[Rfam]
RNA sequence: AAAGGCUACAAGUUUGAGGCCCCAGCAGAAGUGCUCAUAACAUGGCCUUUUGGAUUCCAACAAAUCUACAAAUUCUGCU
Numbered sequence: 001a002a003a004g005g006c007u008a009c010a011a012g013u014u015u016g017a018g019g020c021c022c023c024a025g026c027a028g029a030a031g032u033g034c035u036c037a038u039a040a041c042a043u044g045g046c047c048u049u050u051u052g053g054a055u056u057c058c059a060a061c062a063a064a065u066c067u068a069c070a071a072a073u074u075c076u077g078c079u
Base pairs, nucleotide, nucleotide: 016049017048018047019046020045021044024079025078026077027076028075029074030073031043032042033041051068052067053066054065055064056063

Mammalian CPEB3 ribozyme: a 79-nucleotide sequence from Crocodylus porosus. A search with the family's covariance model found it, with a score of 39 bits. Its family is annotated with RNA nuclease activity in the Gene Ontology. The family's consensus secondary structure is taken from published work.